[Rfam]
RNA: c-di-GMP-I-GGC riboswitch aptamer
Organism: Cohnella pontilimi
RNA sequence: AAGAACAAAGGCAAACCCGAGCGAAAGCCGGGGACGCAAAGCCGCGGAUCUAAACCAUCGCACGGAUGAUGGCAUGACAGCCGGGUUGCUCCAG
Numbered sequence: 001a002a003g004a005a006c007a008a009a010g011g012c013a014a015a016c017c018c019g020a021g022c023g024a025a026a027g028c029c030g031g032g033g034a035c036g037c038a039a040a041g042c043c044g045c046g047g048a049u050c051u052a053a054a055c056c057a058u059c060g061c062a063c064g065g066a067u068g069a070u071g072g073c074a075u076g077a078c079a080g081c082c083g084g085g086u087u088g089c090u091c092c093a094g
Stems, first nucleotide, its partner, number of pairs: 003091002011037002016032004021028002035080001040087004045083003049077002